[Rfam]
RNA sequence: UGUUGGCAGAUGCUCUGACUUCAUUGCACUACUGUAUCAGACAACUAGUAGUGCAAUAGUAUUGUCAAAGCAUCUGAAAACUGC
Numbered sequence: 001u002g003u004u005g006g007c008a009g010a011u012g013c014u015c016u017g018a019c020u021u022c023a024u025u026g027c028a029c030u031a032c033u034g035u036a037u038c039a040g041a042c043a044a045c046u047a048g049u050a051g052u053g054c055a056a057u058a059g060u061a062u063u064g065u066c067a068a069a070g071c072a073u074c075u076g077a078a079a080a081c082u083g084c
Stems, first nucleotide, its partner, number of pairs: 002081003007076008016067004023057008034042001
Background
The family of this 84-nucleotide RNA sequence from Mchenga conophoros is "mir-301 microRNA precursor family". The family's consensus secondary structure was predicted with WAR. Rfam links the family to the GO terms RISC complex and miRNA-mediated post-transcriptional gene silencing.